[Rfam]
RNA sequence: UGAUAUGAGAGUUUGAUCCUGGCUCAGGAUGAACGCUGGCGGCGUGCCUAAUACAUGCAAGUCGAACGAGUUCUGGUUAAUGAUGGCGGUGCUUGCACCAAUAGAUUUAACAUUUGAACGAGUGGCGGACGGGUGAGUAACACGUGGGUAACCUGCCCUAAAGUGGGGGAUAACAUUUGGAAACAGAUGCUAAUACCGCAUAAAUCUUGGAACCUCAUGGUUCCAAGCUGAAAGAUGGCGUAAGCUAUCGCUUUUGGAUGGACCCGCGGCGUAUUAGCUAGUUGGUGAGGUAAAGGCUCACCAAGGCGAUGAUACGUAGCCGACCUGAGAGGGUGAUCGGCCACAUUGGGACUGAGACACGGCCCAAACUCCUACGGGAGGCAGCAGUAGGGAAUCUUCCACAAUGGACGAAAGUCUGAUGGAGCAACGCCGCGUGAGUGAAGAAGGUUUUCGGAUCGUAAAACUCUGUUGUUGGAGAAGAACGUACGUGAGAGUAACUGUUCACGUAGUGACGGUAUCCAACCAGAAAGCCACGGCUAACUACGUGCCAGCAGCCGCGGUAAUACGUAGGUGGCAAGCGUUAUCCGGAUUUAUUG
Numbered sequence: 001u002g003a004u005a006u007g008a009g010a011g012u013u014u015g016a017u018c019c020u021g022g023c024u025c026a027g028g029a030u031g032a033a034c035g036c037u038g039g040c041g042g043c044g045u046g047c048c049u050a051a052u053a054c055a056u057g058c059a060a061g062u063c064g065a066a067c068g069a070g071u072u073c074u075g076g077u078u079a080a081u082g083a084u085g086g087c088g089g090u091g092c093u094u095g096c097a098c099c100a101a102u103a104g105a106u107u108u109a110a111c112a113u114u115u116g117a118a119c120g121a122g123u124g125g126c127g128g129a130c131g132g133g134u135g136a137g138u139a140a141c142a143c144g145u146g147g148g149u150a151a152c153c154u155g156c157c158c159u160a161a162a163g164u165g166g167g168g169g170a171u172a173a174c175a176u177u178u179g180g181a182a183a184c185a186g187a188u189g190c191u192a193a194u195a196c197c198g199c200a201u202a203a204a205u206c207u208u209g210g211a212a213c214c215u216c217a218u219g220g221u222u223c224c225a226a227g228c229u230g231a232a233a234g235a236u237g238g239c240g241u242a243a244g245c246u247a248u249c250g251c252u253u254u255u256g257g258a259u260g261g262a263c264c265c266g267c268g269g270c271g272u273a274u275u276a277g278c279u280a281g282u283u284g285g286u287g288a289g290g291u292a293a294a295g296g297c298u299c300a301c302c303a304a305g306g307c308g309a310u311g312a313u314a315c316g317u318a319g320c321c322g323a324c325c326u327g328a329g330a331g332g333g334u335g336a337u338c339g340g341c342c343a344c345a346u347u348g349g350g351a352c353u354g355a356g357a358c359a360c361g362g363c364c365c366a367a368a369c370u371c372c373u374a375c376g377g378g379a380g381g382c383a384g385c386a387g388u389a390g391g392g393a394a395u396c397u398u399c400c401a402c403a404a405u406g407g408a409c410g411a412a413a414g415u416c417u418g419a420u421g422g423a424g425c426a427a428c429g430c431c432g433c434g435u436g437a438g439u440g441a442a443g444a445a446g447g448u449u450u451u452c453g454g455a456u457c458g459u460a461a462a463a464c465u466c467u468g469u470u471g472u473u474g475g476a477g478a479a480g481a482a483c484g485u486a487c488g489u490g491a492g493a494g495u496a497a498c499u500g501u502u503c504a505c506g507u508a509g510u511g512a513c514g515g516u517a518u519c520c521a522a523c524c525a526g527a528a529a530g531c532c533a534c535g536g537c538u539a540a541c542u543a544c545g546u547g548c549c550a551g552c553a554g555c556c557g558c559g560g561u562a563a564u565a566c567g568u569a570g571g572u573g574g575c576a577a578g579c580g581u582u583a584u585c586c587g588g589a590u591u592u593a594u595u596g
Stems, first nucleotide, its partner, number of pairs: 009025005027586004032582006039433006045426002047391001052389003056386003061126003066123002070119001072117002133344003143268007152261002157257002160254004165199001167197002174189006206227009234249005270316003277307003282304008319341004323334004346367005369380004397423001399422003405418005436466004446457004470527001471523006480513001486507006530575005541570005551558002
The family of this 596-nucleotide part of an RNA from Lacticaseibacillus saniviri is "Bacterial small subunit ribosomal RNA". It scores 1622 bits against the family's covariance model. The organism belongs to Lacticaseibacillus saniviri, within Bacteria.